[Rfam]
RNA: Small nucleolar RNA SNORA57
Organism: Myotis brandtii
RNA sequence: CCUCCUUUUCUUGGCGGGGUUCGGGCGUGCGGUCCGGGUCCCCGUAAUGCACGGAGGCAGAGGGAGAGGGCUCCGGCCCCCUCGGCGUCAUGUUUUCGGUGCCGGCGGUUGCCAGUCCGCCGGUUCUAUCCUCAAGCGCUGGGACAUGG
Numbered sequence: 001c002c003u004c005c006u007u008u009u010c011u012u013g014g015c016g017g018g019g020u021u022c023g024g025g026c027g028u029g030c031g032g033u034c035c036g037g038g039u040c041c042c043c044g045u046a047a048u049g050c051a052c053g054g055a056g057g058c059a060g061a062g063g064g065a066g067a068g069g070g071c072u073c074c075g076g077c078c079c080c081c082u083c084g085g086c087g088u089c090a091u092g093u094u095u096u097c098g099g100u101g102c103c104g105g106c107g108g109u110u111g112c113c114a115g116u117c118c119g120c121c122g123g124u125u126c127u128a129u130c131c132u133c134a135a136g137c138g139c140u141g142g143g144a145c146a147u148g149g
Stems, first nucleotide, its partner, number of pairs: 001057005015044005022037001024035002083141006102123007